[Rfam]
RNA sequence: UUGUCUAUCAUUUUUGUGGAUUAGCAAUUUUGUUCUCGGAUAAUUGCAUAGUCACAAAAGUGAUGGUCAA
Numbered sequence: 001u002u003g004u005c006u007a008u009c010a011u012u013u014u015u016g017u018g019g020a021u022u023a024g025c026a027a028u029u030u031u032g033u034u035c036u037c038g039g040a041u042a043a044u045u046g047c048a049u050a051g052u053c054a055c056a057a058a059a060g061u062g063a064u065g066g067u068c069a070a
Stems, first nucleotide, its partner, number of pairs: 002069002005066002008063012024047006
A member of the RNA family "mir-153 microRNA precursor family" from Gongylonema pulchrum, 70 nucleotides long. The family's consensus secondary structure was predicted with RNAalifold. NCBI's taxonomy places the organism under Eukaryota, Protostomia, Rhabditida, Gongylonematidae, Gongylonema. Rfam links the family to the GO terms miRNA-mediated post-transcriptional gene silencing and RISC complex.